[Rfam]
RNA sequence: CACCGGGAACAGUAAUGUUCCUCGGUCAAUUAUCAGAAGUCAGCCGAUGUCAUAGUAGCCAAACGCCUACCGUAAUGGGUAGGACAUGGUGAAGGGC
Numbered sequence: 001c002a003c004c005g006g007g008a009a010c011a012g013u014a015a016u017g018u019u020c021c022u023c024g025g026u027c028a029a030u031u032a033u034c035a036g037a038a039g040u041c042a043g044c045c046g047a048u049g050u051c052a053u054a055g056u057a058g059c060c061a062a063a064c065g066c067c068u069a070c071c072g073u074a075a076u077g078g079g080u081a082g083g084a085c086a087u088g089g090u091g092a093a094g095g096g097c
Stems, first nucleotide, its partner, number of pairs: 002026001005022007039048003049097003058090003
Shown here is a 97-nucleotide sequence from Marinibactrum halimedae, a member of the family "Group II catalytic intron D1-D4-1". Taxonomically the source falls in Marinibactrum (Bacteria, Pseudomonadati, Gammaproteobacteria, Cellvibrionales). Group II introns are found in rRNA, tRNA and mRNA of organelles in fungi, plants and protists, and also in mRNA in bacteria. A search with the family's covariance model found it, with a score of 56 bits. Rfam links the family to the GO term Group II intron splicing.